Nucleotides: 092
Stems, first nucleotide, its partner, number of pairs: 002042004010031008064092005070085004
Number, partner (000 for none) and nucleotide at each position: 001000g002042g003041a004040u005039c006000g007000g008000g009000a010031g011030g012029c013028c014027u015026c016025u017024g018000g019000u020000g021000g022000g023000a024017c025016a026015g027014a028013g029012g030011c031010c032000a033000g034000g035000a036000a037000u038000g039005g040004a041003u042002c043000g044000g045000a046000a047000u048000c049000g050000c051000c052000g053000u054000c055000u056000c057000g058000g059000a060000u061000g062000g063000a064092c065091g066090u067089g068088c069000c070085g071084c072083u073082g074000g075000u076000g077000c078000c079000c080000g081000a082073c083072a084071g085070c086000a087000c088068g089067c090066g091065c092064g
The family of this 92-nucleotide RNA sequence is "Rhodo-rpoB RNA". Pairs were carried over by alignment from the consensus structure, which is taken from published work. The sequence is in the family's curated seed alignment. Rfam classes the family as a cis-regulatory element.